[Rfam]
This 528-nucleotide part of an RNA from Candidatus Nanobsidianus stetteri belongs to the Rfam family "Archaeal small subunit ribosomal RNA". The family's consensus secondary structure is taken from published work. Lineage of the source: Archaea > Nanobdellati > Candidatus Nanoarchaeia > Nanopusillaceae > Candidatus Nanobsidianus. The match comes from Rfam's covariance-model search (1380 bits).
RNA sequence: AUUCCCGUUGAUCCUGCGGGGGGCCAUCGCUAUCUCCUUCCGACUAACCCAUGGGAGGCUAGGGAUACCGGGUAAGGUAUCCCACCGCACGGCUGAGUAACACGUCGAUAACUCUGUCUCGGGAGGAGAAUAUCCUCGGGAAACUGAGGGUAAUUCUCCAUAGGAAAUGGGGUGUGGAAUUCCCCCAUUUCCGAAAAGGACUGGGAUAAUCCCUCCCAGUUCCGCCCGAGAGGAGGUCGGCGGCCUAUCAGGUAGUUGGCGGGGUAAUGGCCCGCCAAGCCUAAGACGGGUAGGGGCCGUGAGAGCGGGAGCCCCCAGAUCGGCACUGAGACAAGGGCCGAGGUCCUACGGGAUGCACCAGGGGCGAAACCUCCGCAAUGGGUGAAAGCCUGACGGGGGGAGGGAGAGUGCCUGGGGUCUUCCCCAGGCUUUUUGGGAGUGUAAAAAGCUCCCAGAAUAAGCAGUGGGCCAGAGGGGUGGCAGUCGCCACGGGAAUACCCCCGCUGCGAGCGAUGGCCUCGAUUACUG
Numbered sequence: 001a002u003u004c005c006c007g008u009u010g011a012u013c014c015u016g017c018g019g020g021g022g023g024c025c026a027u028c029g030c031u032a033u034c035u036c037c038u039u040c041c042g043a044c045u046a047a048c049c050c051a052u053g054g055g056a057g058g059c060u061a062g063g064g065a066u067a068c069c070g071g072g073u074a075a076g077g078u079a080u081c082c083c084a085c086c087g088c089a090c091g092g093c094u095g096a097g098u099a100a101c102a103c104g105u106c107g108a109u110a111a112c113u114c115u116g117u118c119u120c121g122g123g124a125g126g127a128g129a130a131u132a133u134c135c136u137c138g139g140g141a142a143a144c145u146g147a148g149g150g151u152a153a154u155u156c157u158c159c160a161u162a163g164g165a166a167a168u169g170g171g172g173u174g175u176g177g178a179a180u181u182c183c184c185c186c187a188u189u190u191c192c193g194a195a196a197a198g199g200a201c202u203g204g205g206a207u208a209a210u211c212c213c214u215c216c217c218a219g220u221u222c223c224g225c226c227c228g229a230g231a232g233g234a235g236g237u238c239g240g241c242g243g244c245c246u247a248u249c250a251g252g253u254a255g256u257u258g259g260c261g262g263g264g265u266a267a268u269g270g271c272c273c274g275c276c277a278a279g280c281c282u283a284a285g286a287c288g289g290g291u292a293g294g295g296g297c298c299g300u301g302a303g304a305g306c307g308g309g310a311g312c313c314c315c316c317a318g319a320u321c322g323g324c325a326c327u328g329a330g331a332c333a334a335g336g337g338c339c340g341a342g343g344u345c346c347u348a349c350g351g352g353a354u355g356c357a358c359c360a361g362g363g364g365c366g367a368a369a370c371c372u373c374c375g376c377a378a379u380g381g382g383u384g385a386a387a388g389c390c391u392g393a394c395g396g397g398g399g400g401a402g403g404g405a406g407a408g409u410g411c412c413u414g415g416g417g418u419c420u421u422c423c424c425c426a427g428g429c430u431u432u433u434u435g436g437g438a439g440u441g442u443a444a445a446a447a448g449c450u451c452c453c454a455g456a457a458u459a460a461g462c463a464g465u466g467g468g469c470c471a472g473a474g475g476g477g478u479g480g481c482a483g484u485c486g487c488c489a490c491g492g493g494a495a496u497a498c499c500c501c502c503g504c505u506g507c508g509a510g511c512g513a514u515g516g517c518c519u520c521g522a523u524u525a526c527u528g
Stems, first nucleotide, its partner, number of pairs: 004020005022518010033407009042365001048363003052360003057086002062083007093318003103242007112235002117231007125159004133150007164191008174182001198223002244290003251281003256278008293315004297308004320341005343354004371397001373396003379392005410429008434454007461507006474501004483490002